[Rfam]
RNA: c-di-GMP-I riboswitch aptamer
RNA sequence: AUCUCGAAAAGGCAAAGUUGGUGAAAGCCAAUGACGCAAAACUACAGGGGCUACGGUGUUUCAGUACACUAGGCCAGCCAGUUACCGAA
Numbered sequence: 001a002u003c004u005c006g007a008a009a010a011g012g013c014a015a016a017g018u019u020g021g022u023g024a025a026a027g028c029c030a031a032u033g034a035c036g037c038a039a040a041a042c043u044a045c046a047g048g049g050g051c052u053a054c055g056g057u058g059u060u061u062c063a064g065u066a067c068a069c070u071a072g073g074c075c076a077g078c079c080a081g082u083u084a085c086c087g088a089a
Stems, first nucleotide, its partner, number of pairs: 012037002017032006040083004047079002049075003056069004